RNA sequence: UCGAUCCCGCCAUAGUAAUCCGGCUCAGUACGAGAGGAACCGCCGGUUCGGAUAAUUGGUAAUGCGCUCGCCUGAAAAGGCGGUGGCGCAAAGCUACCAUCCGUAGGCUAACGACUGAACGCCUCUAAGUCGGAAGCCAUGCUAGGAGCGGGGUCAUCUGUCCCAAUGACCGUCACCCGACUACCAAUAGGCUGGAUUCUUUCCAGUCCAGGAGCAUAUCCGAUGGAUCCCUCGGCUCAGGUCACACGCCUGGGUCGGGGCCAUGCAUGACAAUUCCACUCGCUCAUUGGGGUAAAUCCUUUGCAGACCACUUAGCUGGAACGCGGUAUUGUAAGCGGUAGAGUGGCCUUGCUGCUACGAUCCGCUGAGAUUCAGCCGUUGUUCUUACGAUUUGU
Numbered sequence: 001u002c003g004a005u006c007c008c009g010c011c012a013u014a015g016u017a018a019u020c021c022g023g024c025u026c027a028g029u030a031c032g033a034g035a036g037g038a039a040c041c042g043c044c045g046g047u048u049c050g051g052a053u054a055a056u057u058g059g060u061a062a063u064g065c066g067c068u069c070g071c072c073u074g075a076a077a078a079g080g081c082g083g084u085g086g087c088g089c090a091a092a093g094c095u096a097c098c099a100u101c102c103g104u105a106g107g108c109u110a111a112c113g114a115c116u117g118a119a120c121g122c123c124u125c126u127a128a129g130u131c132g133g134a135a136g137c138c139a140u141g142c143u144a145g146g147a148g149c150g151g152g153g154u155c156a157u158c159u160g161u162c163c164c165a166a167u168g169a170c171c172g173u174c175a176c177c178c179g180a181c182u183a184c185c186a187a188u189a190g191g192c193u194g195g196a197u198u199c200u201u202u203c204c205a206g207u208c209c210a211g212g213a214g215c216a217u218a219u220c221c222g223a224u225g226g227a228u229c230c231c232u233c234g235g236c237u238c239a240g241g242u243c244a245c246a247c248g249c250c251u252g253g254g255u256c257g258g259g260g261c262c263a264u265g266c267a268u269g270a271c272a273a274u275u276c277c278a279c280u281c282g283c284u285c286a287u288u289g290g291g292g293u294a295a296a297u298c299c300u301u302u303g304c305a306g307a308c309c310a311c312u313u314a315g316c317u318g319g320a321a322c323g324c325g326g327u328a329u330u331g332u333a334a335g336c337g338g339u340a341g342a343g344u345g346g347c348c349u350u351g352c353u354g355c356u357a358c359g360a361u362c363c364g365c366u367g368a369g370a371u372u373c374a375g376c377c378g379u380u381g382u383u384c385u386u387a388c389g390a391u392u393u394g395u
Base pairs, nucleotide, nucleotide: 003155004154005153006152007151008150009149010148013144014143015142016141018048020046021045022044023043024042049103050102051101052100053099057096058095059094063090064089065088066087067086068083069082070081071080072079073078106138107137112132113131114130115129116128163290164289165288166287167286168285169284294393295392296391297390298389299315300314303311318385319384320383321382322381323380324378325377326376328371329370335365336364337363338362340361343358344357345356346355347354